Betaproteobacteria toxic small RNA: a 63-nucleotide RNA from Massilia eurypsychrophila. Overexpression in amino aid rich medium attenuates growth, suggesting role in repressing amino acid intake and metabolism. The family has 51 seed sequences and 951 matches in Rfam 15.1.
[Rfam]
RNA sequence: UGUCUCCUCCAACUCCUUAAAAAGAAUUGGAUUUCAAGCCCGCUCAACAGCGGGCUUUUUUUU
Number, nucleotide and partner (000 for none) at each position: 001u000002g000003u000004c000005u000006c000007c000008u031009c030010c029011a028012a027013c024014u000015c000016c000017u000018u000019a000020a000021a000022a000023a000024g013025a000026a000027u012028u011029g010030g009031a008032u000033u000034u000035c000036a000037a056038g055039c054040c053041c052042g051043c050044u049045c000046a000047a000048c000049a044050g043051c042052g041053g040054g039055c038056u037057u000058u000059u000060u000061u000062u000063u000